[Rfam]
RNA sequence: UUCUGAUAUAAUAAUUUUAACUUCUUUUAAAAGAAGUUAUCUCCUUUGUGUUGUUUAUAGUAACAAAACACAUUUUUCUCGAAGUACUGUGACAGUACCUAGUCCUUACCGUUACAAGUACAUUAAUAUUCAUUUCCCAUAAAAGCCAAGUAUAAGAAGUGUUUACUCACUUUCUAUACUUGGUUUUU
Numbered sequence: 001u002u003c004u005g006a007u008a009u010a011a012u013a014a015u016u017u018u019a020a021c022u023u024c025u026u027u028u029a030a031a032a033g034a035a036g037u038u039a040u041c042u043c044c045u046u047u048g049u050g051u052u053g054u055u056u057a058u059a060g061u062a063a064c065a066a067a068a069c070a071c072a073u074u075u076u077u078c079u080c081g082a083a084g085u086a087c088u089g090u091g092a093c094a095g096u097a098c099c100u101a102g103u104c105c106u107u108a109c110c111g112u113u114a115c116a117a118g119u120a121c122a123u124u125a126a127u128a129u130u131c132a133u134u135u136c137c138c139a140u141a142a143a144a145g146c147c148a149a150g151u152a153u154a155a156g157a158a159g160u161g162u163u164u165a166c167u168c169a170c171u172u173u174c175u176a177u178a179c180u181u182g183g184u185u186u187u188u
Stems, first nucleotide, its partner, number of pairs: 018039009045072001047070003051066005084121004088116006095109003146183009
RNA: RNA Staph. aureus D